[Rfam]
Nucleotides: 154
Base pairs, nucleotide, nucleotide: 060116061115062114063113065111066110067109068108069107070106119133120132122131123130124129
Number, partner (000 for none) and nucleotide at each position: 001000c002000u003000c004000g005000u006000c007000c008000g009000c010000g011000u012000g013000g014000u015000g016000g017000a018000c019000g020000c021000c022000c023000c024000g025000a026000c027000c028000a029000u030000c031000g032000g033000g034000u035000g036000g037000c038000g039000g040000a041000c042000c043000c044000g045000g046000c047000u048000a049000g050000g051000c052000u053000u054000g055000c056000c057000g058000c059000g060116u061115g062114c063113g064000c065111c066110u067109u068108c069107c070106u071000c072000g073000g074000g075000a076000g077000g078000c079000u080000c081000c082000g083000g084000u085000g086000u087000g088000a089000g090000u091000c092000c093000u094000c095000g096000c097000g098000a099000a100000c101000c102000a103000c104000c105000u106070g107069g108068g109067a110066a111065g112000g113063c114062g115061c116060a117000a118000a119133g120132c121000c122131g123130a124129c125000a126000g127000c128000c129124g130123u131122c132120g133119c134000a135000c136000c137000u138000a139000a140000g141000g142000g143000a144000g145000c146000c147000c148000c149000u150000u151000c152000a153000u154000g